[Rfam]
RNA sequence: UUUUAGCCCUGAUGGAAGCGGAAAUCCUUUUUUUUGUGCGUAUGAGUGCCUCGUGUUUUUACGGGGCACUCAUACGCACAAAAAAAAGAUUGUAGCAACAGCAGGAAUAUGG
Numbered sequence: 001u002u003u004u005a006g007c008c009c010u011g012a013u014g015g016a017a018g019c020g021g022a023a024a025u026c027c028u029u030u031u032u033u034u035u036g037u038g039c040g041u042a043u044g045a046g047u048g049c050c051u052c053g054u055g056u057u058u059u060u061a062c063g064g065g066g067c068a069c070u071c072a073u074a075c076g077c078a079c080a081a082a083a084a085a086a087a088g089a090u091u092g093u094a095g096c097a098a099c100a101g102c103a104g105g106a107a108u109a110u111g112g
Stems, first nucleotide, its partner, number of pairs: 009104003013100002018096002023091004029086027
RNA: Flavo-1 RNA